[Rfam]
RNA: STAXI RNA
Organism: Prodigiosinella confusarubida
RNA sequence: CGUUGUCUCCGACAACUGCCAAUGUUCCAGUGAUUUGAGAGGAACGCCUUCGGGUAAUCGCAUGCCAAUGCCAUCAUGACCUGAGAGAUGGCGCUUUCGGGCGGUUAAGUUAAAUCUGUUUAUCCUUUGAAAACAGAGACCUUCGGGUUAAGGCUCAC
Numbered sequence: 001c002g003u004u005g006u007c008u009c010c011g012a013c014a015a016c017u018g019c020c021a022a023u024g025u026u027c028c029a030g031u032g033a034u035u036u037g038a039g040a041g042g043a044a045c046g047c048c049u050u051c052g053g054g055u056a057a058u059c060g061c062a063u064g065c066c067a068a069u070g071c072c073a074u075c076a077u078g079a080c081c082u083g084a085g086a087g088a089u090g091g092c093g094c095u096u097u098c099g100g101g102c103g104g105u106u107a108a109g110u111u112a113a114a115u116c117u118g119u120u121u122a123u124c125c126u127u128u129g130a131a132a133a134c135a136g137a138g139a140c141c142u143u144c145g146g147g148u149u150a151a152g153g154c155u156c157a158c
Stems, first nucleotide, its partner, number of pairs: 002016006024045005030061006046055003070092005077107005093102003115137005122155001124153004139148003